[Rfam]
RNA sequence: CCACACUCUAACAUGGGGGCACUUGCUGCAACAUGAUUGAAAUUAAGUGCUUCCAUGUUUGAGAGUGG
Numbered sequence: 001c002c003a004c005a006c007u008c009u010a011a012c013a014u015g016g017g018g019g020c021a022c023u024u025g026c027u028g029c030a031a032c033a034u035g036a037u038u039g040a041a042a043u044u045a046a047g048u049g050c051u052u053c054c055a056u057g058u059u060u061g062a063g064a065g066u067g068g
Stems, first nucleotide, its partner, number of pairs: 001068003006063003010059016027042001
Source information
Rfam assigns this 68-nucleotide sequence from Octodon degus to the family "mir-302 microRNA precursor family". The organism belongs to Octodon, within Eukaryota. Pairs were carried over by alignment from the consensus structure, which was predicted with RNAalifold. A search with the family's covariance model found it, with a score of 60 bits.